[Rfam]
RNA: Small nucleolar RNA SNORD72
Organism: Polypterus senegalus
RNA sequence: AGCUUAUCAAUGAUGUCUCAAAAUAAAUGUCUGAACAAAUGAUACUUUUGUGAUUAUAAUUUUUUACUGAGAUAAGCU
Numbered sequence: 001a002g003c004u005u006a007u008c009a010a011u012g013a014u015g016u017c018u019c020a021a022a023a024u025a026a027a028u029g030u031c032u033g034a035a036c037a038a039a040u041g042a043u044a045c046u047u048u049u050g051u052g053a054u055u056a057u058a059a060u061u062u063u064u065u066a067c068u069g070a071g072a073u074a075a076g077c078u
Base pairs, nucleotide, nucleotide: 002077003076004075005074006073007072008071